Archaeal small subunit ribosomal RNA: a 357-nucleotide part of an RNA from Thermofilum pendens. Lineage of the source: Archaea > Thermoproteota > Thermofilales > Thermofilaceae > Thermofilum pendens. The sequence is in the family's curated seed alignment. Pairs were carried over by alignment from the consensus structure, which is taken from published work.
RNA sequence: GGCCUAAAGCGUCCGUAGCCGGCCCGGUAAGUCCCUCCUUAAAGCCCACGGCUCAACCGUGGGAGCGGAGGGAUACUGCCGGGCUAGGGGGCGGGAGAGGCCGGGGGUACUCCUGGGGUAGGGGCGAAAUCCUAUAAUCCCAGGAGGACCACCAGUGGCGAAGGCGCCCGGCUAGCACGCGCCCGACGGUGAGGGACGAAAGCUGGGGGAGCAAAGGGGAUUAGAUACCCCCGUAGUCCCAGCUGUAAACGAUGCGGGCUAGGUGUUGGACGGGCUUCGAGCCCGUCCAGUGCCGUAGGGAAGCCGUUAAGCCCGCCGCCUGGGGAGUACGGCCGCAAGGCUGAAACUUAAAGGAAU
Numbered sequence: 001g002g003c004c005u006a007a008a009g010c011g012u013c014c015g016u017a018g019c020c021g022g023c024c025c026g027g028u029a030a031g032u033c034c035c036u037c038c039u040u041a042a043a044g045c046c047c048a049c050g051g052c053u054c055a056a057c058c059g060u061g062g063g064a065g066c067g068g069a070g071g072g073a074u075a076c077u078g079c080c081g082g083g084c085u086a087g088g089g090g091g092c093g094g095g096a097g098a099g100g101c102c103g104g105g106g107g108u109a110c111u112c113c114u115g116g117g118g119u120a121g122g123g124g125c126g127a128a129a130u131c132c133u134a135u136a137a138u139c140c141c142a143g144g145a146g147g148a149c150c151a152c153c154a155g156u157g158g159c160g161a162a163g164g165c166g167c168c169c170g171g172c173u174a175g176c177a178c179g180c181g182c183c184c185g186a187c188g189g190u191g192a193g194g195g196a197c198g199a200a201a202g203c204u205g206g207g208g209g210a211g212c213a214a215a216g217g218g219g220a221u222u223a224g225a226u227a228c229c230c231c232c233g234u235a236g237u238c239c240c241a242g243c244u245g246u247a248a249a250c251g252a253u254g255c256g257g258g259c260u261a262g263g264u265g266u267u268g269g270a271c272g273g274g275c276u277u278c279g280a281g282c283c284c285g286u287c288c289a290g291u292g293c294c295g296u297a298g299g300g301a302a303g304c305c306g307u308u309a310a311g312c313c314c315g316c317c318g319c320c321u322g323g324g325g326a327g328u329a330c331g332g333c334c335g336c337a338a339g340g341c342u343g344a345a346a347c348u349u350a351a352a353g354g355a356a357u
Stems, first nucleotide, its partner, number of pairs: 001320003009317001011197004016191001018190003022084007030077002032073007040065001045063007088184003091180003095176001099173007106150002110146008121132003158165002202243006211237002216232004254316006262294014298305002322349003331342004